[Rfam]
RNA sequence: CGAGCAUGAUGAUGAUAAACUAAAGAUAUUCCGAUUGAGUUCAUGAAAGGAUACAAAACCUCCUACUCAUUCUGA
Numbered sequence: 001c002g003a004g005c006a007u008g009a010u011g012a013u014g015a016u017a018a019a020c021u022a023a024a025g026a027u028a029u030u031c032c033g034a035u036u037g038a039g040u041u042c043a044u045g046a047a048a049g050g051a052u053a054c055a056a057a058a059c060c061u062c063c064u065a066c067u068c069a070u071u072c073u074g075a
Stems, first nucleotide, its partner, number of pairs: 006070004030051002

Rfam assigns this 75-nucleotide RNA from Nyssa sinensis to the family "Small nucleolar RNA Z105". The family's RNA type in Rfam is C/D-box small nucleolar RNA. The source organism's lineage runs through Eukaryota, Streptophyta, Spermatophyta, asterids and Nyssa. A search with the family's covariance model found it, with a score of 51 bits. For this family Rfam cites "The high diversity of snoRNAs in plants: identification and comparative study of 120 snoRNA genes from Oryza sativa" (Chen et al., Nucleic Acids Res, 2003).